[Rfam]
Shown here is an 82-nucleotide sequence from Callipepla squamata, a member of the family "let-7 microRNA precursor family". The family is grouped with related families in Rfam's "let-7 microRNA precursor clan". The family's consensus secondary structure was predicted with RNAalifold.
RNA sequence: CCGGGGUGAGGUAGUAGAUUGUAUAGUUGGGGGCUCACACGCCCGGCUCGGAGAUAACUAUACAGUCUACUGUCUUCCCCGU
Numbered sequence: 001c002c003g004g005g006g007u008g009a010g011g012u013a014g015u016a017g018a019u020u021g022u023a024u025a026g027u028u029g030g031g032g033g034c035u036c037a038c039a040c041g042c043c044c045g046g047c048u049c050g051g052a053g054a055u056a057a058c059u060a061u062a063c064a065g066u067c068u069a070c071u072g073u074c075u076u077c078c079c080c081g082u
Stems, first nucleotide, its partner, number of pairs: 002081005008076020031044004